[Rfam]
RNA: ZMP/ZTP riboswitch aptamer (pfl RNA motif)
RNA sequence: GUGCCCGGCCGCGACUGGCGAGGGUGGACGACCACCGGGGAGCGGCCCGAUCCGAUGUGAGCGUCGACCGCCUGGGCGCCUCCG
Numbered sequence: 001g002u003g004c005c006c007g008g009c010c011g012c013g014a015c016u017g018g019c020g021a022g023g024g025u026g027g028a029c030g031a032c033c034a035c036c037g038g039g040g041a042g043c044g045g046c047c048c049g050a051u052c053c054g055a056u057g058u059g060a061g062c063g064u065c066g067a068c069c070g071c072c073u074g075g076g077c078g079c080c081u082c083c084g
Base pairs, nucleotide, nucleotide: 003051005049007047008046009045010044011043012042015039016038017072018071019070020069024035025034026033027032061079062078063077064076065075